[Rfam]
RNA sequence: CCAUGGUGGUGGCUGGGGACAGCCACAUGGUGGUGGAGGG
Numbered sequence: 001c002c003a004u005g006g007u008g009g010u011g012g013c014u015g016g017g018g019a020c021a022g023c024c025a026c027a028u029g030g031u032g033g034u035g036g037a038g039g040g
Stems, first nucleotide, its partner, number of pairs: 001030005
RNA: Prion pseudoknot